[Rfam]
RNA sequence: AGAGAUCACAAGUUUGAGGCCACCGCAGAACUGCUCGUGGCACGGCCCUGUCAGAUUCCAACGAAUCUAUGAAUUCUGCU
Numbered sequence: 001a002g003a004g005a006u007c008a009c010a011a012g013u014u015u016g017a018g019g020c021c022a023c024c025g026c027a028g029a030a031c032u033g034c035u036c037g038u039g040g041c042a043c044g045g046c047c048c049u050g051u052c053a054g055a056u057u058c059c060a061a062c063g064a065a066u067c068u069a070u071g072a073a074u075u076c077u078g079c080u
Stems, first nucleotide, its partner, number of pairs: 016048001018047004025079006032042002053068006
Mammalian CPEB3 ribozyme: an 80-nucleotide RNA from Alligator mississippiensis. Gene Ontology term of the family: RNA nuclease activity. The source organism's lineage runs through Eukaryota, Euteleostomi, Dipnotetrapodomorpha, Archosauria and Alligator. The mammalian CPEB3 ribozyme is a self cleaving RNA located in the second intron of the CPEB3 gene which belongs to a family of genes regulating messenger RNA polyadenylation.